RNA sequence: AAAUCGCUGUGAUGAAUCAUGAAAUCUACAACGCAUGUCAGACUUCGGAGAUGCCUUUGGCAUUGAUGAGAAGAUAUUUCAUGUUCUGAGCUAUAC
Numbered sequence: 001a002a003a004u005c006g007c008u009g010u011g012a013u014g015a016a017u018c019a020u021g022a023a024a025u026c027u028a029c030a031a032c033g034c035a036u037g038u039c040a041g042a043c044u045u046c047g048g049a050g051a052u053g054c055c056u057u058u059g060g061c062a063u064u065g066a067u068g069a070g071a072a073g074a075u076a077u078u079u080c081a082u083g084u085u086c087u088g089a090g091c092u093a094u095a096c
Stems, first nucleotide, its partner, number of pairs: 003094002006091002050064004

Rfam assigns this 96-nucleotide RNA from Brachypodium distachyon to the family "Small nucleolar RNA R64/Z200 family".
The source organism's lineage runs through Eukaryota, Magnoliopsida, commelinids, Brachypodieae and Brachypodium.
A search with the family's covariance model found it, with a score of 62 bits.
A reference for the family is Galardi et al. (2002), "Purified box C/D snoRNPs are able to reproduce site-specific 2'-O-methylation of target RNA in vitro", Mol Cell Biol.
The base pairs follow the family's consensus structure, which was predicted with PFOLD.
By type it is a C/D-box small nucleolar RNA.